[Rfam]
RNA sequence: UCUCCAUUUCACGUGCUCUCUCACCGGUCAGAGAGGCGAGAAAGAGCGCGCAAUGAAGAGA
Numbered sequence: 001u002c003u004c005c006a007u008u009u010c011a012c013g014u015g016c017u018c019u020c021u022c023a024c025c026g027g028u029c030a031g032a033g034a035g036g037c038g039a040g041a042a043a044g045a046g047c048g049c050g051c052a053a054u055g056a057a058g059a060g061a
Stems, first nucleotide, its partner, number of pairs: 001059003005055003010050001012048003016044002019041004
Notes: The family of this 61-nucleotide sequence from Pristionchus pacificus is "mir-8364 microRNA precursor family". Rfam 15.1 lists 3,320 matches to the family in 2 species. Gene Ontology terms of the family: miRNA-mediated post-transcriptional gene silencing and RISC complex. The base pairs follow the family's consensus structure, which was predicted with RNAalifold.